Rfam assigns this 84-nucleotide sequence from Mikania micrantha to the family "Plastid-psbM 3UTR RNA". The source organism's lineage runs through Eukaryota, Viridiplantae, Pentapetalae, Asteraceae and Mikania. By type it is a cis-regulatory element. From the family's description: Plastid psbM is a non-coding RNA (ncRNA) recognised in plastids.
RNA sequence: GAUCCGAGAGUAUGGUAAGUAAUAAAUUUAUCUCUACUUACCAUACUUUCUAUUAGUGUUAUAGUAGCGUAUCAAAUUGUUUCU
Numbered sequence: 001g002a003u004c005c006g007a008g009a010g011u012a013u014g015g016u017a018a019g020u021a022a023u024a025a026a027u028u029u030a031u032c033u034c035u036a037c038u039u040a041c042c043a044u045a046c047u048u049u050c051u052a053u054u055a056g057u058g059u060u061a062u063a064g065u066a067g068c069g070u071a072u073c074a075a076a077u078u079g080u081u082u083c084u
Base pairs, nucleotide, nucleotide: 006050007049008048009047010046011045012044013043014042015041016040017039018038019037020036021035024033